About this RNA: This 83-nucleotide RNA sequence from Dethiobacter alkaliphilus belongs to the Rfam family "tRNA". It is annotated as a transfer RNA. Clan: tRNA clan. Gene Ontology term of the family: triplet codon-amino acid adaptor activity.
RNA sequence: GGAGAGGUACCCAAGUUGGCCAAAGGGGGCAGACUGUAAAUCUGUUGUCUCAGACUUCACAGGUUCGAAUCCUGUCCUCUCCA
Numbered sequence: 001g002g003a004g005a006g007g008u009a010c011c012c013a014a015g016u017u018g019g020c021c022a023a024a025g026g027g028g029g030c031a032g033a034c035u036g037u038a039a040a041u042c043u044g045u046u047g048u049c050u051c052a053g054a055c056u057u058c059a060c061a062g063g064u065u066c067g068a069a070u071c072c073u074g075u076c077c078u079c080u081c082c083a
Stems, first nucleotide, its partner, number of pairs: 001082007010027003029045005059075005